[Rfam]
Group II catalytic intron D1-D4-2: a 118-nucleotide RNA from Parashewanella spongiae. The base pairs follow the family's consensus structure. From the family's description: Group II introns are found in rRNA, tRNA and mRNA of organelles in fungi, plants and protists, and also in mRNA in bacteria.
RNA sequence: GGUGGUUUGACCCACCGGAGUCUGCUGUCGGAAGCUAGCUCCAAACCGCUUCAAGCUGCGAAUAUUAAGAGUAUUCGUGGUGAGCGUUGAAGAAACGGGCAUAUUUAUGUGCUCAGGU
Numbered sequence: 001g002g003u004g005g006u007u008u009g010a011c012c013c014a015c016c017g018g019a020g021u022c023u024g025c026u027g028u029c030g031g032a033a034g035c036u037a038g039c040u041c042c043a044a045a046c047c048g049c050u051u052c053a054a055g056c057u058g059c060g061a062a063u064a065u066u067a068a069g070a071g072u073a074u075u076c077g078u079g080g081u082g083a084g085c086g087u088u089g090a091a092g093a094a095a096c097g098g099g100c101a102u103a104u105u106u107a108u109g110u111g112c113u114c115a116g117g118u
Base pairs, nucleotide, nucleotide: 001016002015003014004013005012017042018041019040020039021038024035025034026033047117049092050091051090052089053088054087055081056080058078059077060076062074063073064072065071097114098113099112100111101110102109
The organism belongs to Parashewanella, within Bacteria. It scores 97 bits against the family's covariance model.